[Rfam]
RNA: TPP riboswitch aptamer (THI element)
RNA sequence: ACGGCACUUUAGGGGUGUCCAUUAAGCGGACUGAGAUAAUACCCUUUGAACCUGAUGCAGUUCGUACUGCCGAAGGGAAAAGUGAAAGUCUUCUU
Dot-bracket structure: .....(((((((((.(((((.......)))).......)..)))).....(((...((((......))))...)))..)))))............
Numbered sequence: 001a002c003g004g005c006a007c008u009u010u011a012g013g014g015g016u017g018u019c020c021a022u023u024a025a026g027c028g029g030a031c032u033g034a035g036a037u038a039a040u041a042c043c044c045u046u047u048g049a050a051c052c053u054g055a056u057g058c059a060g061u062u063c064g065u066a067c068u069g070c071c072g073a074a075g076g077g078a079a080a081a082g083u084g085a086a087a088g089u090c091u092u093c094u095u
Stems, first nucleotide, its partner, number of pairs: 006083005011045004016039001017031004051076003057070004